A member of the RNA family "small nucleolar RNA snoR26" from Plasmodium relictum, 159 nucleotides long. A reference for the family is Chakrabarti et al. (2007), "Structural RNAs of known and unknown function identified in malaria parasites by comparative genomics and RNA analysis", RNA. Rfam classes the family as a C/D-box small nucleolar RNA. The match comes from Rfam's covariance-model search (80 bits). Gene Ontology terms of the family: RNA processing and nucleolus. The organism belongs to Haemamoeba, within Eukaryota.
[Rfam]
RNA sequence: UAUGCCUUAAAUAAGUAUAAUAUGUUCAUGAUUUAUUAAAUUGUUGUGACAAAUAUUUUAUUCGAGGCUAGAAAAAUGUUUAUCAAUGAUAAAACGAGUUAUGCUUUUUUUUUUUUUAUAAGUUGCUGACUCACCUGACAUUGAAACAAAAAAUAAUAU
Numbered sequence: 001u002a003u004g005c006c007u008u009a010a011a012u013a014a015g016u017a018u019a020a021u022a023u024g025u026u027c028a029u030g031a032u033u034u035a036u037u038a039a040a041u042u043g044u045u046g047u048g049a050c051a052a053a054u055a056u057u058u059u060a061u062u063c064g065a066g067g068c069u070a071g072a073a074a075a076a077u078g079u080u081u082a083u084c085a086a087u088g089a090u091a092a093a094a095c096g097a098g099u100u101a102u103g104c105u106u107u108u109u110u111u112u113u114u115u116u117u118a119u120a121a122g123u124u125g126c127u128g129a130c131u132c133a134c135c136u137g138a139c140a141u142u143g144a145a146a147c148a149a150a151a152a153a154u155a156a157u158a159u
Stems, first nucleotide, its partner, number of pairs: 021158003024154003
Dot-bracket structure: ....................((((((.............................................................................................................................))).))).